Source information:
Shown here is a 256-nucleotide RNA, a member of the family "FuFi-1 RNA". Rfam's curators put it in the seed alignment.
[Rfam]
RNA sequence: UGCCAAUGCUCUGGGGCAACAUUGCGGAACAGAAACCGCUAAAGUGAGGCAUGUAUCAUAGAAUCGUAUGUGAUUUAUGCGAAUUUCGACACAUUGGAAUUUUUUUUGGAAAAGCAUCUAUUUAGAAGUCUUUUGCCAAGCUUCUUGUUCAAUUGAUGUUAGAGGUCAGGGUACUAUCGGCUAGAUGUGCGAAAAUGCAGUGCAGUCAGGUAAACAAAUUCUGGGAUCUAGACAUUCGUGAAAUCACCGCGGAUGU
Numbered sequence: 001u002g003c004c005a006a007u008g009c010u011c012u013g014g015g016g017c018a019a020c021a022u023u024g025c026g027g028a029a030c031a032g033a034a035a036c037c038g039c040u041a042a043a044g045u046g047a048g049g050c051a052u053g054u055a056u057c058a059u060a061g062a063a064u065c066g067u068a069u070g071u072g073a074u075u076u077a078u079g080c081g082a083a084u085u086u087c088g089a090c091a092c093a094u095u096g097g098a099a100u101u102u103u104u105u106u107u108g109g110a111a112a113a114g115c116a117u118c119u120a121u122u123u124a125g126a127a128g129u130c131u132u133u134u135g136c137c138a139a140g141c142u143u144c145u146u147g148u149u150c151a152a153u154u155g156a157u158g159u160u161a162g163a164g165g166u167c168a169g170g171g172u173a174c175u176a177u178c179g180g181c182u183a184g185a186u187g188u189g190c191g192a193a194a195a196u197g198c199a200g201u202g203c204a205g206u207c208a209g210g211u212a213a214a215c216a217a218a219u220u221c222u223g224g225g226a227u228c229u230a231g232a233c234a235u236u237c238g239u240g241a242a243a244u245c246a247c248c249g250c251g252g253a254u255g256u
Stems, first nucleotide, its partner, number of pairs: 001051004024039004030223005052204005064082006070247007084194005090189006232256009
Record summary
The family's RNA type in Rfam is small RNA.